[Rfam]
Nucleotides: 067
Base pairs, nucleotide, nucleotide: 001067002066003065005063
Number, partner (000 for none) and nucleotide at each position: 001067g002066c003065g004000c005063a006000a007000a008000u009000g010000a011000u012000g013000g014000a015000a016000a017000a018000a019000u020000c021000a022000c023000u024000a025000u026000u027000u028000g029000g030000g031000g032000g033000g034000g035000g036000a037000a038000a039000u040000g041000a042000c043000a044000u045000g046000a047000a048000c049000a050000a051000a052000g053000g054000a055000a056000c057000c058000a059000c060000u061000g062000a063005u064000a065003c066002g067001c
Rfam assigns this 67-nucleotide RNA from Lipotes vexillifer to the family "Small nucleolar RNA SNORD42". The literature on the family includes a 2002 paper in Mol Cell Biol by Galardi et al., "Purified box C/D snoRNPs are able to reproduce site-specific 2'-O-methylation of target RNA in vitro". Gene Ontology terms of the family: nucleolus and RNA processing. snoRNA U42 is found in intron 3 of the ribosomal protein L23a (RPL23a) gene in humans and is also present in mice. The match comes from Rfam's covariance-model search (53 bits). The family's RNA type in Rfam is C/D-box small nucleolar RNA.